[Rfam]
Shown here is a 131-nucleotide sequence from Adineta ricciae, a member of the family "U4 spliceosomal RNA".
The base pairs follow the family's consensus structure, which is taken from published work.
It is annotated as a spliceosomal small nuclear RNA.
RNA sequence: AUUCUUGCGCAGUGGUGGUACCUCAUCCGAUGAGCGUUGUUGUGAUAGGAGAGGUGAUUGCUAGUUGCAAACUACUACCAAUGCCACAUCGGUCGUUGUGACUGGUGUAAUUUUUCCAGCUUCUUCGGAAG
Number, nucleotide and partner (000 for none) at each position: 001a000002u000003u000004c000005u000006u000007g000008c000009g000010c000011a000012g000013u000014g000015g000016u000017g000018g000019u000020a055021c054022c053023u052024c051025a000026u050027c049028c048029g000030a000031u000032g000033a000034g043035c042036g041037u000038u000039g000040u000041u036042g035043u034044g000045a000046u000047a000048g028049g027050a026051g024052a023053g022054g021055u020056g000057a000058u000059u000060g000061c000062u000063a000064g000065u000066u000067g000068c000069a000070a000071a000072c000073u000074a000075c000076u000077a000078c000079c000080a000081a000082u000083g000084c000085c000086a108087c107088a106089u105090c104091g103092g102093u101094c100095g099096u000097u000098g000099u095100g094101a093102c092103u091104g090105g089106u088107g087108u086109a000110a000111u000112u000113u000114u000115u000116c000117c000118a000119g000120c131121u130122u129123c128124u000125u000126c000127g000128g123129a122130a121131g120